[Rfam]
RNA sequence: CUCCGGGCCCCGUGCAAUGGAAUCCCAUGAACCCUGUCAGGUCCGAGAGGAAGCAGCAGUAAGUGGUCCUUUCCAUGUGCCACGGUGCAUCCUGGAGACU
Numbered sequence: 001c002u003c004c005g006g007g008c009c010c011c012g013u014g015c016a017a018u019g020g021a022a023u024c025c026c027a028u029g030a031a032c033c034c035u036g037u038c039a040g041g042u043c044c045g046a047g048a049g050g051a052a053g054c055a056g057c058a059g060u061a062a063g064u065g066g067u068c069c070u071u072u073c074c075a076u077g078u079g080c081c082a083c084g085g086u087g088c089a090u091c092c093u094g095g096a097g098a099c100u
Base pairs, nucleotide, nucleotide: 004094005093006092007091010085011084012083013082014081015077017076018075019074020073021072022071025066026065027064028063034059035058036057037056042051043050044049